[Rfam]
RNA sequence: GUACAUGGAGAUAAAAACACAGUUUCGGUAGGUAGUCCGAACCUAUCUAUAUUUUGUAGAUAGCAGUAUCCUUCCCUCCUGGGGUCGUCCAUUCUCUAUUUUAAUUUA
Number, nucleotide and partner (000 for none) at each position: 001g000002u000003a000004c000005a099006u098007g097008g096009a095010g094011a093012u000013a000014a000015a000016a000017a000018c000019a000020c000021a000022g042023u041024u000025u040026c039027g038028g037029u000030a000031g000032g000033u000034a000035g000036u000037c028038c027039g026040a025041a023042c022043c063044u062045a061046u060047c059048u058049a057050u056051a055052u000053u000054u000055u051056g050057u049058a048059g047060a046061u045062a044063g043064c000065a000066g000067u000068a000069u000070c000071c000072u000073u000074c084075c083076c082077u000078c000079c000080u000081g000082g076083g075084g074085u000086c000087g000088u000089c000090c000091a000092u000093u011094c010095u009096c008097u007098a006099u005100u000101u000102u000103a000104a000105u000106u000107u000108a000

A member of the RNA family "azaaromatic riboswitch aptamer (yjdF RNA)" from Clostridium magnum, 108 nucleotides long.